[Rfam]
Shown here is a 72-nucleotide sequence from Rattus norvegicus, a member of the family "mir-193 microRNA precursor family". Its family is annotated with RISC complex and miRNA-mediated post-transcriptional gene silencing in the Gene Ontology.
RNA sequence: GCUGAGAGCUGGGUCUUUGCGGGCAAGAUGAGGGUGUCAGUUCAACUGGCCUACAAAGUCCCAGUCCUCGGC
Numbered sequence: 001g002c003u004g005a006g007a008g009c010u011g012g013g014u015c016u017u018u019g020c021g022g023g024c025a026a027g028a029u030g031a032g033g034g035u036g037u038c039a040g041u042u043c044a045a046c047u048g049g050c051c052u053a054c055a056a057a058g059u060c061c062c063a064g065u066c067c068u069c070g071g072c
Stems, first nucleotide, its partner, number of pairs: 003070004008065001010063004015058005021052004026047002029044002
The sequence is in the family's curated seed alignment. The organism belongs to Rattus, within Eukaryota.